[Rfam]
RNA sequence: ACACGGGAAAGGAGGUGGUCCGAGGAAUGAAUGGCUUUCGGACGCGUGAGGUGACUGCCCGCUAGUCGCCCGUAGCAGACGGACGUGCUGCCGUCGCCGGGCCACCGGCGAAUCCUCGGCAGUCACCGGAGCCCGUGGGGGCCGCACCCUCGUCCCGUGCGGCACCCGGCCACCAGGCCGGAGCCCACGGGCUCUUCCCUG
Numbered sequence: 001a002c003a004c005g006g007g008a009a010a011g012g013a014g015g016u017g018g019u020c021c022g023a024g025g026a027a028u029g030a031a032u033g034g035c036u037u038u039c040g041g042a043c044g045c046g047u048g049a050g051g052u053g054a055c056u057g058c059c060c061g062c063u064a065g066u067c068g069c070c071c072g073u074a075g076c077a078g079a080c081g082g083a084c085g086u087g088c089u090g091c092c093g094u095c096g097c098c099g100g101g102c103c104a105c106c107g108g109c110g111a112a113u114c115c116u117c118g119g120c121a122g123u124c125a126c127c128g129g130a131g132c133c134c135g136u137g138g139g140g141g142c143c144g145c146a147c148c149c150u151c152g153u154c155c156c157g158u159g160c161g162g163c164a165c166c167c168g169g170c171c172a173c174c175a176g177g178c179c180g181g182a183g184c185c186c187a188c189g190g191g192c193u194c195u196u197c198c199c200u201g
Stems, first nucleotide, its partner, number of pairs: 014059006060110004065105002068102004073096001075094001128195012142162006
A member of the RNA family "Actinobacteria sRNA Ms_IGR-5" from Janibacter alkaliphilus, 201 nucleotides long. The source organism's lineage runs through Bacteria, Bacillati, Micrococcales, Intrasporangiaceae and Janibacter. For this family Rfam cites "Identification of small RNAs in Mycobacterium smegmatis using heterologous Hfq" (Li et al., RNA, 2013). The family's RNA type in Rfam is small RNA.